[Rfam]
RNA sequence: UCAUCCCACACGGGAGAGUCAGGAUGCGUCGUGGACGCAGGCCUGCGCCGAAGGGGCAAUUCCUCCCCGGAACCUCUCAGGCGCCCGGACCGUGUGGAGCAG
Numbered sequence: 001u002c003a004u005c006c007c008a009c010a011c012g013g014g015a016g017a018g019u020c021a022g023g024a025u026g027c028g029u030c031g032u033g034g035a036c037g038c039a040g041g042c043c044u045g046c047g048c049c050g051a052a053g054g055g056g057c058a059a060u061u062c063c064u065c066c067c068c069g070g071a072a073c074c075u076c077u078c079a080g081g082c083g084c085c086c087g088g089a090c091c092g093u094g095u096g097g098a099g100c101a102g
Stems, first nucleotide, its partner, number of pairs: 006097008020045004047082003050078002054076003060070002